RNA sequence: UGGUAGAUGCACCCUAAUAAAUUACAGCCCUUAGCCUAAAGCUGGGGGCUUUUAUU
Numbered sequence: 001u002g003g004u005a006g007a008u009g010c011a012c013c014c015u016a017a018u019a020a021a022u023u024a025c026a027g028c029c030c031u032u033a034g035c036c037u038a039a040a041g042c043u044g045g046g047g048g049c050u051u052u053u054a055u056u
Stems, first nucleotide, its partner, number of pairs: 002013003027049009

Rfam assigns this 56-nucleotide RNA from Nostoc punctiforme to the family "Nitrogen stress-induced RNA 1". Taxonomically the source falls in Nostoc punctiforme (Bacteria, Bacillati, Cyanobacteriota, Nostocaceae). The match comes from Rfam's covariance-model search (44 bits). For this family Rfam cites "Heterocyst-specific transcription of NsiR1, a non-coding RNA encoded in a tandem array of direct repeats in cyanobacteria" (Ionescu et al., J Mol Biol, 2010). The family's RNA type in Rfam is small RNA.